[Rfam]
Shown here is a 91-nucleotide RNA from Tetzosporium hominis, a member of the family "TPP riboswitch aptamer (THI element)". The source organism's lineage runs through Bacteria, Bacillati, Bacillota, Caryophanales and Tetzosporium. Vitamin B(1) in its active form thiamin pyrophosphate (TPP) is an essential coenzyme that is synthesised by coupling of pyrimidine and thiazole moieties in bacteria.
RNA sequence: UGUUACCACAAGGGGCGUCGCAUUGCGGCUGAGAGAGUACCCUUAGAACCUGGAAGUUCAUGCUUGCGUAGGGAUGUGGAUAGAAACUGAU
Numbered sequence: 001u002g003u004u005a006c007c008a009c010a011a012g013g014g015g016c017g018u019c020g021c022a023u024u025g026c027g028g029c030u031g032a033g034a035g036a037g038u039a040c041c042c043u044u045a046g047a048a049c050c051u052g053g054a055a056g057u058u059c060a061u062g063c064u065u066g067c068g069u070a071g072g073g074a075u076g077u078g079g080a081u082a083g084a085a086a087c088u089g090a091u
Stems, first nucleotide, its partner, number of pairs: 006079005011043004016037001017029005049072004054065003